[Rfam]
RNA sequence: UCCGAAGAUCUGGGUCGGACCUCCGCCGGUUUUUUCCGCGGUGAUAUUCCUAAUUAGCUGGUUAUCACCGGGUAAAAACUGGUAGAGGUCCGAUCCAGUCGG
Dot-bracket structure: ...............(((((((..((((((((((.((.(.((((((................)))))).))).))))))))))..)))))))..........
The record is a 102-nucleotide RNA from Caenorhabditis nigoni, which matches "mir-36 microRNA precursor family" in Rfam. Lineage of the source: Eukaryota > Bilateria > Nematoda > Rhabditida > Caenorhabditis. A reference for the family is Ohler et al. (2004), "Patterns of flanking sequence conservation and a characteristic upstream motif for microRNA gene identification", RNA. The match comes from Rfam's covariance-model search (79 bits). Pairs were carried over by alignment from the consensus structure, which was predicted with WAR. The family is grouped with related families in Rfam's "mir-36 clan".